[Rfam]
RNA sequence: GAUCGAUGAAGAGAUUUACACGACGGUCUUCUGAAUACAGCAACGGAGUUUGCAUCGUCUGUAGAUAGCUUUACGUGUGCCGAGAUC
Numbered sequence: 001g002a003u004c005g006a007u008g009a010a011g012a013g014a015u016u017u018a019c020a021c022g023a024c025g026g027u028c029u030u031c032u033g034a035a036u037a038c039a040g041c042a043a044c045g046g047a048g049u050u051u052g053c054a055u056c057g058u059c060u061g062u063a064g065a066u067a068g069c070u071u072u073a074c075g076u077g078u079g080c081c082g083a084g085a086u087c
Stems, first nucleotide, its partner, number of pairs: 001087004
Small nucleolar RNA sn3071: an 87-nucleotide RNA sequence from Diploscapter pachys. Taxonomically the source falls in Diploscapter (Eukaryota, Metazoa, Bilateria, Chromadorea). The family has 2 seed sequences and 32 matches in Rfam 15.1. Rfam links the family to the GO terms nucleolus and RNA processing. The family's RNA type in Rfam is C/D-box small nucleolar RNA.